A member of the RNA family "purD RNA motif", 134 nucleotides long. For this family Rfam cites "Identification of 22 candidate structured RNAs in bacteria using the CMfinder comparative genomics pipeline" (Weinberg et al., Nucleic Acids Res, 2007). A search with the family's covariance model found it, with a score of 70 bits.

[Rfam]
RNA sequence: GUAGAGCUUUCGUGUGCCGGUGUUUUCGUUUGAGAUACGUUGACUCUGUCGAGAAAAUGUCGCCGUUAGAAAGUUCUUGCUUCGCCUAAAUACGGCUUUUAGAACUAAGCCAAUAACGAGACGGCUAUCUGGGU
Numbered sequence: 001g002u003a004g005a006g007c008u009u010u011c012g013u014g015u016g017c018c019g020g021u022g023u024u025u026u027c028g029u030u031u032g033a034g035a036u037a038c039g040u041u042g043a044c045u046c047u048g049u050c051g052a053g054a055a056a057a058u059g060u061c062g063c064c065g066u067u068a069g070a071a072a073g074u075u076c077u078u079g080c081u082u083c084g085c086c087u088a089a090a091u092a093c094g095g096c097u098u099u100u101a102g103a104a105c106u107a108a109g110c111c112a113a114u115a116a117c118g119a120g121a122c123g124g125c126u127a128u129c130u131g132g133g134u
Stems, first nucleotide, its partner, number of pairs: 003077002006074005018062005024056004034050004094111005